The family of this 97-nucleotide RNA sequence from Propithecus coquereli is "mir-544 microRNA precursor family". Its family is annotated with miRNA-mediated post-transcriptional gene silencing and RISC complex in the Gene Ontology. Rfam 15.1 lists 10,750 matches to the family in 132 species.
RNA sequence: AUCUCCUAGAGGUCUUGUUAAAAUGCAAAUUCUGAUUCAGCACGUCUGGGUGAGACCUGAGAUUCUGCAUCUCUAACAAGCUUCCAGGUGAUGUUGA
Numbered sequence: 001a002u003c004u005c006c007u008a009g010a011g012g013u014c015u016u017g018u019u020a021a022a023a024u025g026c027a028a029a030u031u032c033u034g035a036u037u038c039a040g041c042a043c044g045u046c047u048g049g050g051u052g053a054g055a056c057c058u059g060a061g062a063u064u065c066u067g068c069a070u071c072u073c074u075a076a077c078a079a080g081c082u083u084c085c086a087g088g089u090g091a092u093g094u095u096g097a
Stems, first nucleotide, its partner, number of pairs: 003090001005088001009084003014080007021072001023070001025068003029064001031062003
The source organism's lineage runs through Eukaryota, Eumetazoa, Deuterostomia, Eutheria and Propithecus.